[Rfam]
RNA: glmS glucosamine-6-phosphate activated ribozyme aptamer
RNA sequence: UGGAUCAAUUGAGCGCCUGGACUAAGGAAAGUCGACGAGGACAGCAGUUAUCGAAAGAUUCGGCGGGUACUGCUGCGGUGAACAGUGAAUCGUAAGAAUGGGGACAAAAGCAGAGAACUGCCACAAAGCCGCCAUUCAGCACUGAU
Numbered sequence: 001u002g003g004a005u006c007a008a009u010u011g012a013g014c015g016c017c018u019g020g021a022c023u024a025a026g027g028a029a030a031g032u033c034g035a036c037g038a039g040g041a042c043a044g045c046a047g048u049u050a051u052c053g054a055a056a057g058a059u060u061c062g063g064c065g066g067g068u069a070c071u072g073c074u075g076c077g078g079u080g081a082a083c084a085g086u087g088a089a090u091c092g093u094a095a096g097a098a099u100g101g102g103g104a105c106a107a108a109a110g111c112a113g114a115g116a117a118c119u120g121c122c123a124c125a126a127a128g129c130c131g132c133c134a135u136u137c138a139g140c141a142c143u144g145a146u
Stems, first nucleotide, its partner, number of pairs: 020033004042075005051063004076092004097136005103130001110121004